[Rfam]
RNA sequence: AUGAAAGGAUCCUCGACUAAAAUCGCCACGUCCUGUGGCAACAUCGAGGGACCCGCAUCAUGCGGG
Number, nucleotide and partner (000 for none) at each position: 001a000002u000003g000004a000005a000006a000007g000008g000009a000010u000011c049012c048013u047014c046015g045016a044017c000018u000019a000020a000021a000022a000023u000024c000025g039026c038027c037028a036029c035030g000031u000032c000033c000034u000035g029036u028037g027038g026039c025040a000041a000042c000043a000044u016045c015046g014047a013048g012049g011050g000051a000052c066053c065054c064055g063056c062057a000058u000059c000060a000061u000062g056063c055064g054065g053066g052

The record is a 66-nucleotide sequence from Lederbergia lenta, which matches "Bacillaceae-1 RNA" in Rfam. The source organism's lineage runs through Bacteria, Bacillati, Bacilli, Caryophanales and Lederbergia. A search with the family's covariance model found it, with a score of 71 bits. The family's consensus secondary structure is taken from published work. The family's RNA type in Rfam is small RNA.